Rfam assigns this 77-nucleotide sequence from Argiope bruennichi to the family "mir-10 microRNA precursor family". Pairs were carried over by alignment from the consensus structure, which was predicted with PFOLD. Gene Ontology terms of the family: miRNA-mediated post-transcriptional gene silencing and RISC complex.
RNA sequence: CAGCGGGAACCCGUAGAUCCGAACUUGUGUCUUCCGAGACACAAUACCACAAGCUCGUUUCUACGGGUCUUUGCUUU
Numbered sequence: 001c002a003g004c005g006g007g008a009a010c011c012c013g014u015a016g017a018u019c020c021g022a023a024c025u026u027g028u029g030u031c032u033u034c035c036g037a038g039a040c041a042c043a044a045u046a047c048c049a050c051a052a053g054c055u056c057g058u059u060u061c062u063a064c065g066g067g068u069c070u071u072u073g074c075u076u077u
Stems, first nucleotide, its partner, number of pairs: 002075006010067003015062003020057003024053006